[Rfam]
RNA: GlmZ RNA activator of glmS mRNA
Organism: Yersinia intermedia
RNA sequence: GUAGAUGCUCAUCUCAUUUAUUAUGAUAGCGUGGUGUUAUAGCCAACUUAGCUUCAUAAACCCAGAGAUGAUGCAGAGCCGAUUUUAGGGUGCCUAUUGUCCAUGUAAACGAUGUCGAAUAUCUUCAUCACAUACCGGGCAUAACGUUGAGUGAGGCGCCGACAUUGUUGUCUGUAGACCUGAAAAUUUUAGACGCUUGCCUUUCCGGCAAGCGUUUUUUU
Numbered sequence: 001g002u003a004g005a006u007g008c009u010c011a012u013c014u015c016a017u018u019u020a021u022u023a024u025g026a027u028a029g030c031g032u033g034g035u036g037u038u039a040u041a042g043c044c045a046a047c048u049u050a051g052c053u054u055c056a057u058a059a060a061c062c063c064a065g066a067g068a069u070g071a072u073g074c075a076g077a078g079c080c081g082a083u084u085u086u087a088g089g090g091u092g093c094c095u096a097u098u099g100u101c102c103a104u105g106u107a108a109a110c111g112a113u114g115u116c117g118a119a120u121a122u123c124u125u126c127a128u129c130a131c132a133u134a135c136c137g138g139g140c141a142u143a144a145c146g147u148u149g150a151g152u153g154a155g156g157c158g159c160c161g162a163c164a165u166u167g168u169u170g171u172c173u174g175u176a177g178a179c180c181u182g183a184a185a186a187u188u189u190u191a192g193a194c195g196c197u198u199g200c201c202u203u204u205c206c207g208g209c210a211a212g213c214g215u216u217u218u219u220u221u
Stems, first nucleotide, its partner, number of pairs: 001079002006075003009071004014067001017065001019058002027051001029049001089160007099140004111129004170179003192216010